[Rfam]
RNA sequence: AGUUUCUCGUUGCCGUUCAUCAGACAGUUUUUGCUAGAUUCUAGCAAAAGCAAAACUGUCUGAUGAACGGCAACGAGAAACU
Numbered sequence: 001a002g003u004u005u006c007u008c009g010u011u012g013c014c015g016u017u018c019a020u021c022a023g024a025c026a027g028u029u030u031u032u033g034c035u036a037g038a039u040u041c042u043a044g045c046a047a048a049a050g051c052a053a054a055a056c057u058g059u060c061u062g063a064u065g066a067a068c069g070g071c072a073a074c075g076a077g078a079a080a081c082u
Stems, first nucleotide, its partner, number of pairs: 004079012017066004023060002030054005
About this RNA: This 82-nucleotide sequence from Octopus sinensis belongs to the Rfam family "mir-980 microRNA precursor family". It scores 52 bits against the family's covariance model. Its family is annotated with RISC complex and miRNA-mediated post-transcriptional gene silencing in the Gene Ontology. The organism belongs to Octopus, within Eukaryota.